[Rfam]
RNA: mir-184 microRNA precursor family
Nucleotides: 086
Stems, first nucleotide, its partner, number of pairs: 012075009022065006030057002
Number, partner (000 for none) and nucleotide at each position: 001000u002000c003000g004000c005000c006000c007000a008000c009000a010000u011000c012075u013074c014073c015072u016071u017070a018069u019068c020067a021000c022065u023064u024063u025062u026061c027060c028000a029000g030057c031056c032000c033000a034000g035000c036000u037000u038000u039000c040000a041000u042000a043000u044000c045000c046000u047000g048000u049000a050000u051000c052000c053000g054000u055000u056031g057030g058000a059000c060027g061026g062025a063024g064023a065022a066000c067020u068019g069018a070017u071016a072015a073014g074013g075012g076000c077000a078000u079000g080000u081000g082000c083000u084000u085000g086000a